[Rfam]
RNA sequence: CACGCGGUGUCUGGCGUUAGGGCUGGAAGAGCGGCGUGGCCUUACACAGAGGU
Dot-bracket structure: (((((.((.((((((......))))))...)).)))))...............
The record is a 53-nucleotide RNA, which matches "L31-Gammaproteobacteria ribosomal protein leader" in Rfam. Rfam's curators put it in the seed alignment. A reference for the family is Eckert and Weinberg (2020), "Discovery of 20 novel ribosomal leader candidates in bacteria and archaea", BMC Microbiol.